This 182-nucleotide RNA sequence from Arenaria interpres belongs to the Rfam family "Small nucleolar RNA SNORA81". It is annotated as an H/ACA-box small nucleolar RNA. The base pairs follow the family's consensus structure, which was predicted with WAR.
RNA sequence: CCCUUCUUGCUCAAAGCACUGUGCUAAAAUCGCAGGGACCAGGGCGGAGCUCUGGGCUCUGUGAUCAUGCUAGCAGAGUACAUGCAGGAAGAAGAACAACCACGCACUGGAUCGAACCUGACUGGGGUGGACCUCUUUCUUAAUGUCCAGUGUCCUGGGUCGGAAGAUCCGGUGCAACAGUC
Numbered sequence: 001c002c003c004u005u006c007u008u009g010c011u012c013a014a015a016g017c018a019c020u021g022u023g024c025u026a027a028a029a030u031c032g033c034a035g036g037g038a039c040c041a042g043g044g045c046g047g048a049g050c051u052c053u054g055g056g057c058u059c060u061g062u063g064a065u066c067a068u069g070c071u072a073g074c075a076g077a078g079u080a081c082a083u084g085c086a087g088g089a090a091g092a093a094g095a096a097c098a099a100c101c102a103c104g105c106a107c108u109g110g111a112u113c114g115a116a117c118c119u120g121a122c123u124g125g126g127g128u129g130g131a132c133c134u135c136u137u138u139c140u141u142a143a144u145g146u147c148c149a150g151u152g153u154c155c156u157g158g159g160u161c162g163g164a165a166g167a168u169c170c171g172g173u174g175c176a177a178c179a180g181u182c
Base pairs, nucleotide, nucleotide: 019078020077022075023074024073025072026071029068030067032065035059036058039055040054041053042052043051044050045049104175105174106173107172108171109170110169111168124153126151128149129148130147131146